[Rfam]
RNA: Lysine riboswitch aptamer
Organism: Thermoflavimicrobium daqui
RNA sequence: CGCUGAAGUGGAGGUUGCGGCUUUUAUGAGUAUUCAAAUCGGAGAUACAGAGAGGAUCAAUGAGGGUUUGAAGAAAGGAAAAGUCGCCGAAGUUUGUCCAUAUUCUCUGUAUAGACAAACUGGGUCUGUUUCCGAAAAGGAGCAGAACUGUCACGAUACAGAUGGAUCGUGAAGCGCUAUCUUCAAC
Numbered sequence: 001c002g003c004u005g006a007a008g009u010g011g012a013g014g015u016u017g018c019g020g021c022u023u024u025u026a027u028g029a030g031u032a033u034u035c036a037a038a039u040c041g042g043a044g045a046u047a048c049a050g051a052g053a054g055g056a057u058c059a060a061u062g063a064g065g066g067u068u069u070g071a072a073g074a075a076a077g078g079a080a081a082a083g084u085c086g087c088c089g090a091a092g093u094u095u096g097u098c099c100a101u102a103u104u105c106u107c108u109g110u111a112u113a114g115a116c117a118a119a120c121u122g123g124g125u126c127u128g129u130u131u132c133c134g135a136a137a138a139g140g141a142g143c144a145g146a147a148c149u150g151u152c153a154c155g156a157u158a159c160a161g162a163u164g165g166a167u168c169g170u171g172a173a174g175c176g177c178u179a180u181c182u183u184c185a186a187c
Stems, first nucleotide, its partner, number of pairs: 006182001008180004017087009033072008091121008100112003122149002125146008151172007